[Rfam]
RNA sequence: AGGCAGCCUCUAUGCGUGAUUUAAUCGCAUAUGAAGGUGUUAUUUUGCCCAUAAAUUAAUGUCUCUUGCUCUUCUGAUUUGCUGAGAAGAAUAGUAUUCUUCUUUGAAGCCGGUCUAGUAAGCCUAAGUACAUA
Numbered sequence: 001a002g003g004c005a006g007c008c009u010c011u012a013u014g015c016g017u018g019a020u021u022u023a024a025u026c027g028c029a030u031a032u033g034a035a036g037g038u039g040u041u042a043u044u045u046u047g048c049c050c051a052u053a054a055a056u057u058a059a060u061g062u063c064u065c066u067u068g069c070u071c072u073u074c075u076g077a078u079u080u081g082c083u084g085a086g087a088a089g090a091a092u093a094g095u096a097u098u099c100u101u102c103u104u105u106g107a108a109g110c111c112g113g114u115c116u117a118g119u120a121a122g123c124c125u126a127a128g129u130a131c132a133u134a
Stems, first nucleotide, its partner, number of pairs: 002041004007037002009034002011031006063128002068123003076115004081110003086102005